[Rfam]
RNA: Glycine riboswitch aptamer
RNA sequence: UGAAGGUAGUAGGGAGAGACUGCGAGUAAUAUCUGUGCAGCGCCGAAGGAGCAAACCAGGAAUGGUGAAUCUCUCAGGCAAAAGAACCUCUACUGGAC
Numbered sequence: 001u002g003a004a005g006g007u008a009g010u011a012g013g014g015a016g017a018g019a020c021u022g023c024g025a026g027u028a029a030u031a032u033c034u035g036u037g038c039a040g041c042g043c044c045g046a047a048g049g050a051g052c053a054a055a056c057c058a059g060g061a062a063u064g065g066u067g068a069a070u071c072u073c074u075c076a077g078g079c080a081a082a083a084g085a086a087c088c089u090c091u092a093c094u095g096g097a098c
Stems, first nucleotide, its partner, number of pairs: 005094005011089003020040004042079003045075002049073003055066002